[Rfam]
RNA sequence: AUUACCUGGGGACCUUGUUAAGAUGCAAAUUCUGAUUCAGUAGGUUUGGGGUGGGCCCAAGAUUCUGCACCUUUAACAAGCCCCCAUGUAGCUGCUGU
Number, nucleotide and partner (000 for none) at each position: 001a000002u000003u090004a089005c088006c000007u000008g000009g084010g083011g082012a000013c000014c080015u079016u078017g077018u076019u075020a074021a072022g071023a000024u000025g068026c067027a066028a000029a064030u000031u062032c061033u060034g000035a000036u000037u000038c000039a000040g000041u000042a000043g000044g000045u000046u000047u000048g000049g000050g000051g000052u000053g000054g000055g000056c000057c000058c000059a000060a033061g032062a031063u000064u029065c000066u027067g026068c025069a000070c000071c022072u021073u000074u020075a019076a018077c017078a016079a015080g014081c000082c011083c010084c009085c000086a000087u000088g005089u004090a003091g000092c000093u000094g000095c000096u000097g000098u000